Background: This 77-nucleotide RNA sequence from Flavobacterium kingsejongi belongs to the Rfam family "Flavo-1 RNA". The family's consensus secondary structure is taken from published work. Taxonomically the source falls in Flavobacterium (Bacteria, Pseudomonadati, Bacteroidota, Flavobacteriia). By type it is a small RNA.

RNA sequence: CUUUUGCAAUAGGGAUAGCAGCGGUAUCCUUACCUCCUUUUUCAGGAGGUACGAUAUAGCGAAUAGCCCGGCCCGAA
Numbered sequence: 001c002u003u004u005u006g007c008a009a010u011a012g013g014g015a016u017a018g019c020a021g022c023g024g025u026a027u028c029c030u031u032a033c034c035u036c037c038u039u040u041u042u043c044a045g046g047a048g049g050u051a052c053g054a055u056a057u058a059g060c061g062a063a064u065a066g067c068c069c070g071g072c073c074c075g076a077a
Stems, first nucleotide, its partner, number of pairs: 012069003016065002021060002026055003031051008